[Rfam]
RNA sequence: AAAAAGCGUUAGCUAUUGCAGCGGCAUCCUUUUUUGGGCGGCCCUGCCGGCUAAAAAAGAUACAGCGGAAAGAGCGCCCCGUU
Numbered sequence: 001a002a003a004a005a006g007c008g009u010u011a012g013c014u015a016u017u018g019c020a021g022c023g024g025c026a027u028c029c030u031u032u033u034u035u036g037g038g039c040g041g042c043c044c045u046g047c048c049g050g051c052u053a054a055a056a057a058a059g060a061u062a063c064a065g066c067g068g069a070a071a072g073a074g075c076g077c078c079c080c081g082u083u
Stems, first nucleotide, its partner, number of pairs: 012075003016071002021066002026061003032056006039049003
About this RNA: Shown here is an 83-nucleotide RNA sequence from Arenibacter nanhaiticus, a member of the family "Flavo-1 RNA".